[Rfam]
RNA: FMN riboswitch aptamer (RFN element)
Organism: Colidextribacter sp. OB.20
RNA sequence: AGAUGUCUUCAGGGCAGGGUGAAAUUCCCGAUCGGCGGUACAGUCCGCGAGCGCAGAAGCGCUGAUUUGGUGAAACUCCAAAACCGACAGUAUAGUCUGGAUUUGAAGAAGGUGUGU
Numbered sequence: 001a002g003a004u005g006u007c008u009u010c011a012g013g014g015c016a017g018g019g020u021g022a023a024a025u026u027c028c029c030g031a032u033c034g035g036c037g038g039u040a041c042a043g044u045c046c047g048c049g050a051g052c053g054c055a056g057a058a059g060c061g062c063u064g065a066u067u068u069g070g071u072g073a074a075a076c077u078c079c080a081a082a083a084c085c086g087a088c089a090g091u092a093u094a095g096u097c098u099g100g101a102u103u104u105g106a107a108g109a110a111g112g113u114g115u116g117u
Base pairs, nucleotide, nucleotide: 003115004114005113006112007111008110009109010108017029018028019027031096032095033086034085035048036047037046038045043084044083051062052061053060066082067081068080069079070078088099089098090097